[Rfam]
RNA sequence: GGAGCCCAACUGGUUCUCACUGCAGUGAUAAGCUAUGUUACAGUCUAUCACCGGGUGAAAAACGGUUAGGCUCU
Numbered sequence: 001g002g003a004g005c006c007c008a009a010c011u012g013g014u015u016c017u018c019a020c021u022g023c024a025g026u027g028a029u030a031a032g033c034u035a036u037g038u039u040a041c042a043g044u045c046u047a048u049c050a051c052c053g054g055g056u057g058a059a060a061a062a063c064g065g066u067u068a069g070g071c072u073c074u
Stems, first nucleotide, its partner, number of pairs: 001074006008067005014061002017058001019056003023053001025051002028048003032044003
The record is a 74-nucleotide RNA from Caenorhabditis briggsae, which matches "mir-39 microRNA precursor family" in Rfam. The sequence is in the family's curated seed alignment. Gene Ontology terms of the family: RISC complex and miRNA-mediated post-transcriptional gene silencing. The base pairs follow the family's consensus structure, which was predicted with RNAalifold.